This 79-nucleotide RNA sequence from Parafrankia colletiae belongs to the Rfam family "Actinobacteria sRNA Ms_AS-4".

RNA sequence: CUUGGUGUUGUAGCGGGUCGGGUCGUCUCCGAACUCGGCGAGCACCCGGGCAGCGAGAACCUGUCCCAGCCCCGGUUGG
Numbered sequence: 001c002u003u004g005g006u007g008u009u010g011u012a013g014c015g016g017g018u019c020g021g022g023u024c025g026u027c028u029c030c031g032a033a034c035u036c037g038g039c040g041a042g043c044a045c046c047c048g049g050g051c052a053g054c055g056a057g058a059a060c061c062u063g064u065c066c067c068a069g070c071c072c073c074g075g076u077u078g079g
Stems, first nucleotide, its partner, number of pairs: 006040005015035002018032005052076001054074001057072001060069001
Background: NCBI's taxonomy places the organism under Bacteria, Bacillati, Actinomycetes, Frankiaceae, Parafrankia. The family has 9 seed sequences and 207 matches in Rfam 15.1. By type it is a small RNA. A reference for the family is Li et al. (2013), "Identification of small RNAs in Mycobacterium smegmatis using heterologous Hfq", RNA.